[Rfam]
Rfam assigns this 113-nucleotide RNA from Pengzhenrongella sicca to the family "SAM (S-adenosyl methionine) riboswitch aptamer". The family's consensus secondary structure is taken from published work. Its family is annotated with regulation of gene expression and S-adenosylmethionine metabolic process in the Gene Ontology.

RNA sequence: GGUCACGAGCACCAGCGUUCAGCCCCGGCUUGCUGGUCGGCAACCCUCCUCCGCGGUGGGGUGCCCCGGGUGACGACCUGGUCCCGGCCGUCCGGUCGGGGCAAGCGCGGGAC
Numbered sequence: 001g002g003u004c005a006c007g008a009g010c011a012c013c014a015g016c017g018u019u020c021a022g023c024c025c026c027g028g029c030u031u032g033c034u035g036g037u038c039g040g041c042a043a044c045c046c047u048c049c050u051c052c053g054c055g056g057u058g059g060g061g062u063g064c065c066c067c068g069g070g071u072g073a074c075g076a077c078c079u080g081g082u083c084c085c086g087g088c089c090g091u092c093c094g095g096u097c098g099g100g101g102c103a104a105g106c107g108c109g110g111g112a113c
Stems, first nucleotide, its partner, number of pairs: 001078004009038001011037006021030002039065003044061003048056002081102009